[Rfam]
The family of this 89-nucleotide RNA from Canis lupus is "mir-8799 microRNA precursor family". It scores 70 bits against the family's covariance model. Lineage of the source: Eukaryota > Metazoa > Carnivora > Caniformia > Canis lupus. Pairs were carried over by alignment from the consensus structure, which was predicted with RNAalifold.

RNA sequence: GGGGGAGGCGGGAUCCUGGGCUGUGUCCCGGCGCCCUGUGCUCCGGAGCCUGUGCUGUUGGAUUCGUGCUCCCGCCGCCCGAGCCCCCC
Numbered sequence: 001g002g003g004g005g006a007g008g009c010g011g012g013a014u015c016c017u018g019g020g021c022u023g024u025g026u027c028c029c030g031g032c033g034c035c036c037u038g039u040g041c042u043c044c045g046g047a048g049c050c051u052g053u054g055c056u057g058u059u060g061g062a063u064u065c066g067u068g069c070u071c072c073c074g075c076c077g078c079c080c081g082a083g084c085c086c087c088c089c
Stems, first nucleotide, its partner, number of pairs: 001088005009081004016074001018072003022068004026062003029057006038050001040049003